Rfam assigns this 236-nucleotide sequence from Thiospirochaeta perfilievii to the family "Group II catalytic intron D1-D4-6".
The organism belongs to Thiospirochaeta, within Bacteria.
The base pairs follow the family's consensus structure.
It scores 100 bits against the family's covariance model.
About the family: Group II introns are found in rRNA, tRNA and mRNA of organelles in fungi, plants and protists, and also in mRNA in bacteria.
[Rfam]
RNA sequence: ACAAUCCAGCACGUGUAAAGGUUAACCACCAGCACGGAACUGAACCAUGAGUAUAACGAGGUAACGAAUUAUGCGAAGCCAUGGGAAGGGCAGUUUAUCAGCCGCAACGCAAGUGAAGGUAUCGAGCCCCGUAAUUAUCCAUUUUGCACAGGGUCAAGGGUUUCAUUUCCUGGAAGCCAGAAUCAGUACAUGCGUAAAUGGUGAGUGUGUAUAUGACGUGUCGGGGUCUAAGUCCG
Numbered sequence: 001a002c003a004a005u006c007c008a009g010c011a012c013g014u015g016u017a018a019a020g021g022u023u024a025a026c027c028a029c030c031a032g033c034a035c036g037g038a039a040c041u042g043a044a045c046c047a048u049g050a051g052u053a054u055a056a057c058g059a060g061g062u063a064a065c066g067a068a069u070u071a072u073g074c075g076a077a078g079c080c081a082u083g084g085g086a087a088g089g090g091c092a093g094u095u096u097a098u099c100a101g102c103c104g105c106a107a108c109g110c111a112a113g114u115g116a117a118g119g120u121a122u123c124g125a126g127c128c129c130c131g132u133a134a135u136u137a138u139c140c141a142u143u144u145u146g147c148a149c150a151g152g153g154u155c156a157a158g159g160g161u162u163u164c165a166u167u168u169c170c171u172g173g174a175a176g177c178c179a180g181a182a183u184c185a186g187u188a189c190a191u192g193c194g195u196a197a198a199u200g201g202u203g204a205g206u207g208u209g210u211a212u213a214u215g216a217c218g219u220g221u222c223g224g225g226g227u228c229u230a231a232g233u234c235c236g
Base pairs, nucleotide, nucleotide: 012036013035014034015033016032020030021029022028023204025202026201040088041087045084046083047082049079051074052073053072054071055070056069060065124228126227127226128225129224130223131222146221147220148219149218151217152178153177154176158171159170160169183216184215185214187211188210189209190208191207192206193205